Description
The record is a 112-nucleotide RNA sequence from Trifolium medium, which matches "MIR2593 microRNA precursor family" in Rfam. Rfam links the family to the GO terms miRNA-mediated post-transcriptional gene silencing and RISC complex. Taxonomically the source falls in Trifolium (Eukaryota, Mesangiospermae, fabids, Trifolieae). The match comes from Rfam's covariance-model search (105 bits).
[Rfam]
RNA sequence: UUAUAAGCAAAAGUUCACUUUUUAGAUACAUUGAAUAACUGAUGUAUCUGGACUAUAUAGUCUAGAUACAUCAAUUAUUCAAUGUAUCUAAAAAGUGAACUUUUGCUUAUAA
Numbered sequence: 001u002u003a004u005a006a007g008c009a010a011a012a013g014u015u016c017a018c019u020u021u022u023u024a025g026a027u028a029c030a031u032u033g034a035a036u037a038a039c040u041g042a043u044g045u046a047u048c049u050g051g052a053c054u055a056u057a058u059a060g061u062c063u064a065g066a067u068a069c070a071u072c073a074a075u076u077a078u079u080c081a082a083u084g085u086a087u088c089u090a091a092a093a094a095g096u097g098a099a100c101u102u103u104u105g106c107u108u109a110u111a112a
Stems, first nucleotide, its partner, number of pairs: 002111006009104005015098011027086012040073005049064004